RNA sequence: GGUUUCCGUUUGUGUAAAUCCAAUCACUUGAAUUUAAGAUGAUAAGAAAUUAUCCAUUGGUAAAAAAUGGUCAUCCAUUAAGCGGAGGAAAUUUUAU
Numbered sequence: 001g002g003u004u005u006c007c008g009u010u011u012g013u014g015u016a017a018a019u020c021c022a023a024u025c026a027c028u029u030g031a032a033u034u035u036a037a038g039a040u041g042a043u044a045a046g047a048a049a050u051u052a053u054c055c056a057u058u059g060g061u062a063a064a065a066a067a068u069g070g071u072c073a074u075c076c077a078u079u080a081a082g083c084g085g086a087g088g089a090a091a092u093u094u095u096a097u
Stems, first nucleotide, its partner, number of pairs: 009023002012020001053086003056078002059075003063071001
This 97-nucleotide RNA sequence from Capsicum baccatum belongs to the Rfam family "Plastid-rps12 3UTR RNA". The base pairs follow the family's consensus structure, which was predicted with LocARNA. The match comes from Rfam's covariance-model search (96 bits). Plastid rpl20 is a non-coding RNA (ncRNA) recognised in plastids. It was found in the three prime untranslated region (3UTR) of rps12 gene, its 3UTR location sugest a role in transcript maduration. Rfam classes the family as a cis-regulatory element.